[Rfam]
RNA: U1 spliceosomal RNA
Organism: Saprolegnia diclina
RNA sequence: AUACUUACCUGGCUGGAGCUCGACCCUGAUCAACUCGGGGGUUGACUUGGGCCGGAGCAGGCCUUCAUGCACUCCGGUGCUGUAAUGGCCUAGGAGUGCCUUCGGGUUCCUCCACAGCGCAAUUUUUGCCAGCGGGGGUGUGCGCGUGCGCCACCCCCAC
Numbered sequence: 001a002u003a004c005u006u007a008c009c010u011g012g013c014u015g016g017a018g019c020u021c022g023a024c025c026c027u028g029a030u031c032a033a034c035u036c037g038g039g040g041g042u043u044g045a046c047u048u049g050g051g052c053c054g055g056a057g058c059a060g061g062c063c064u065u066c067a068u069g070c071a072c073u074c075c076g077g078u079g080c081u082g083u084a085a086u087g088g089c090c091u092a093g094g095a096g097u098g099c100c101u102u103c104g105g106g107u108u109c110c111u112c113c114a115c116a117g118c119g120c121a122a123u124u125u126u127u128g129c130c131a132g133c134g135g136g137g138g139u140g141u142g143c144g145c146g147u148g149c150g151c152c153a154c155c156c157c158c159a160c
Base pairs, nucleotide, nucleotide: 012118013117014116015115016048017047018046020044023042024041025040026039027038049090050089053087056083059081060080062077063076093113094112095111096109098107099105100104135158136157137156138155142151143150144149